[Rfam]
RNA sequence: UGACGGAAAGGCACCACCAGGAGUGGAGUUUGCGGCUUAAUUCGACUCAACGCGGGGAAACUCACCAGGUUAGGACAGAGGAGAGAUUGACAGGUUGAGAGUCCUUUCUUGAUUCUUUGAUUGGUGGUGCAUGGCCGUUCUUAGUUCGUGGAGUGAUCUGUCUACUUAAUUGUGUUAACGAACGAGACCUUAACCUGCUAAUUAGCGCAUGGGUCGGUAAAACGAUCAUUUCACCCUUUGGGUGCUUGCUAUCUCAUAAUUCCUGAAUUAUGAGUGCUUCUUAGAGGGACAAUACGCGUUGAAAUUUUUUUCAUACCAGCGUGGGGAAGUUUAAGGCAAUAACAGGUCUGUGAUGCCCUUAGAUAUCCUGGGCGGCACGCGUACUACAAUGUUAUUAUCAACGAGCAACAUCCAAGCCCCUUCGCGGGAUCACUUGAGCCUAUACUUUAAGUAGUAUGGGGAAUCUUUGAAAUGGUAACCUGACUGGGAUAGCUGUUUGGAAUUACAUCUUGAACGAGGAAUUCCUAGUAAGCGCAAGUCAUCAUCUUGCAUUGACUACGUCCCUGCCUUUUGUACACA
Number, nucleotide and partner (000 for none) at each position: 001u577002g576003a574004c573005g572006g000007a571008a570009a569010g568011g567012c566013a565014c000015c000016a561017c560018c000019a000020g525021g524022a523023g522024u521025g387026g000027a385028g384029u383030u000031u381032g380033c379034g378035g376036c375037u000038u000039a000040a000041u056042u055043c054044g053045a000046c000047u000048c000049a000050a000051c000052g000053c044054g043055g042056g041057g000058a000059a000060a000061c000062u000063c000064a000065c371066c370067a369068g368069g367070u000071u365072a000073g000074g000075a000076c119077a118078g117079a116080g115081g000082a000083g000084a000085g000086a000087u000088u000089g108090a107091c000092a105093g104094g103095u000096u000097g000098a000099g000100a000101g000102u000103c094104c093105u092106u000107u090108c089109u000110u000111g000112a000113u000114u000115c080116u079117u078118u077119g076120a000121u000122u000123g359124g358125u000126g357127g356128u355129g354130c000131a000132u353133g351134g347135c346136c345137g343138u342139u341140c000141u000142u000143a000144g183145u182146u181147c180148g179149u178150g159151g158152a157153g000154u000155g000156a000157u152158c151159u150160g000161u000162c000163u174164a173165c172166u000167u000168a000169a000170u000171u000172g165173u164174g163175u000176u000177a000178a149179c148180g147181a146182a145183c144184g000185a000186g000187a000188c000189c335190u334191u333192a332193a000194c287195c286196u285197g000198c284199u283200a282201a281202u000203u000204a278205g277206c276207g275208c000209a000210u000211g000212g000213g000214u000215c000216g000217g000218u000219a000220a000221a000222a000223c000224g000225a000226u000227c000228a000229u000230u000231u000232c000233a000234c000235c000236c000237u000238u000239u000240g000241g000242g000243u000244g000245c000246u000247u000248g000249c000250u000251a000252u000253c000254u000255c000256a000257u000258a000259a000260u000261u000262c000263c000264u000265g000266a000267a000268u000269u000270a000271u000272g000273a000274g000275u207276g206277c205278u204279u000280c000281u201282u200283a199284g198285a196286g195287g194288g000289a000290c326291a000292a000293u323294a322295c321296g320297c319298g000299u000300u000301g000302a000303a000304a000305u000306u000307u000308u000309u000310u000311u000312c000313a000314u000315a000316c000317c000318a000319g297320c296321g295322u294323g293324g000325g000326g290327a000328a000329g000330u000331u000332u192333a191334a190335g189336g000337c000338a000339a000340u000341a139342a138343c137344a000345g136346g135347u134348c000349u000350g000351u133352g000353a132354u129355g128356c127357c126358c124359u123360u000361a000362g000363a000364u000365a071366u000367c069368c068369u067370g066371g065372g000373c000374g000375g036376c035377a000378c034379g033380c032381g031382u000383a029384c028385u027386a000387c025388a000389a000390u000391g479392u478393u477394a476395u475396u474397a473398u000399c000400a000401a000402c000403g467404a466405g465406c000407a000408a000409c000410a000411u000412c000413c000414a000415a000416g000417c000418c000419c000420c000421u000422u000423c000424g000425c000426g000427g000428g000429a000430u000431c000432a000433c000434u000435u000436g000437a000438g000439c460440c459441u000442a000443u456444a455445c454446u453447u000448u000449a000450a000451g000452u000453a446454g445455u444456a443457u000458g000459g440460g439461g000462a000463a000464u000465c405466u404467u403468u000469g000470a000471a000472a000473u397474g396475g395476u394477a393478a392479c391480c000481u000482g000483a000484c000485u000486g515487g000488g000489a000490u000491a510492g509493c000494u507495g506496u505497u000498u000499g000500g000501a000502a000503u000504u000505a496506c495507a494508u000509c492510u491511u000512g000513a000514a000515c486516g000517a000518g000519g000520a000521a024522u023523u022524c021525c020526u000527a000528g000529u000530a000531a553532g552533c000534g550535c549536a548537a547538g546539u000540c000541a000542u000543c000544a000545u000546c538547u537548u536549g535550c534551a000552u532553u531554g000555a000556c000557u000558a000559c000560g017561u016562c000563c000564c000565u013566g012567c011568c010569u009570u008571u007572u005573g004574u003575a000576c002577a001578c000579a000
RNA: Eukaryotic small subunit ribosomal RNA, nucleotides 1202 to 1780
Organism: Paravahlkampfia sp. A1PW2